[Rfam]
RNA sequence: CUGUUCCUUUUUCCUAUGCAUAUACCUCUUUGAGAUCUAGCAUUAAAGAGGCAUGGCGUAUGGGAAAAUGGGGCUG
Numbered sequence: 001c002u003g004u005u006c007c008u009u010u011u012u013c014c015u016a017u018g019c020a021u022a023u024a025c026c027u028c029u030u031u032g033a034g035a036u037c038u039a040g041c042a043u044u045a046a047a048g049a050g051g052c053a054u055g056g057c058g059u060a061u062g063g064g065a066a067a068a069u070g071g072g073g074c075u076g
Base pairs, nucleotide, nucleotide: 010067011066012065013064014063015062016061017060018059019058021055022054023053025051026050027049028048029047030046031045032044
The record is a 76-nucleotide sequence from Anguilla anguilla, which matches "mir-202 microRNA precursor family" in Rfam. Rfam links the family to the GO terms RISC complex and miRNA-mediated post-transcriptional gene silencing. For this family Rfam cites "Identification of hundreds of conserved and nonconserved human microRNAs" (Bentwich et al., Nat Genet, 2005). It scores 86 bits against the family's covariance model. The family's consensus secondary structure was predicted with RNAalifold.